[Rfam]
Nucleotides: 228
Stems, first nucleotide, its partner, number of pairs: 007208003012067004076091006106141002109138005165200005171194003175188004211226005
Number, partner (000 for none) and nucleotide at each position: 001000u002000g003000a004000c005000c006000c007208g008207g009206u010000c011000g012067g013066g014065c015064g016000c017000g018000a019000c020000a021000u022000c023000a024000a025000a026000a027000a028000c029000c030000a031000a032000a033000g034000a035000a036000c037000c038000g039000g040000g041000g042000a043000a044000a045000g046000a047000a048000c049000c050000c051000a052000a053000c054000c055000c056000a057000c058000c059000c060000c061000u062000g063000c064015c065014g066013u067012c068000c069000c070000c071000g072000g073000c074000g075000a076091u077090c078089a079088c080087u081086c082000u083000c084000c085000g086081g087080a088079g089078u090077g091076a092000a093000u094000a095000u096000g097000c098000c099000c100000a101000a102000c103000u104000c105000g106141g107140c108000u109138g110137g111136c112135g113134c114000g115000g116000c117000g118000g119000g120000g121000u122000g123000g124000u125000u126000g127000u128000g129000g130000u131000g132000c133000a134113g135112c136111g137110u138109c139000u140107g141106c142000g143000a144000c145000a146000a147000c148000a149000a150000c151000u152000c153000c154000a155000g156000a157000c158000g159000u160000a161000c162000u163000u164000c165200g166199g167198c168197c169196c170000u171194c172193g173192c174000g175188g176187g177186g178185a179000c180000u181000g182000c183000a184000a185178u186177c187176c188175c189000g190000c191000u192173g193172c194171g195000a196169g197168g198167g199166c200165c201000u202000g203000a204000u205000c206009a207008c208007c209000u210000a211226g212225g213224a214223a215222g216000a217000a218000g219000a220000c221000g222215c223214u224213u225212c226211c227000c228000g